[Rfam]
RNA sequence: UUAGAAUGCCUAUAAAUAAAGUUAUAAACACGUAACACCCCGAAUCUUCGGGGUUUUUUAUUAUGUCACUGUAGUGAGACUGGGCUAAUAAGCCCUUUUAUG
Dot-bracket structure: .................................((.((((((......)))))).))........................((((......)))).......

The family of this 102-nucleotide sequence from Sodalis endosymbiont of Henestaris halophilus is "Gammaprotebacteria rimP leader". The source organism's lineage runs through Bacteria, Pseudomonadati, Gammaproteobacteria, Bruguierivoracaceae and Sodalis. It is annotated as a cis-regulatory leader. Rfam links the family to the GO term regulation of gene expression.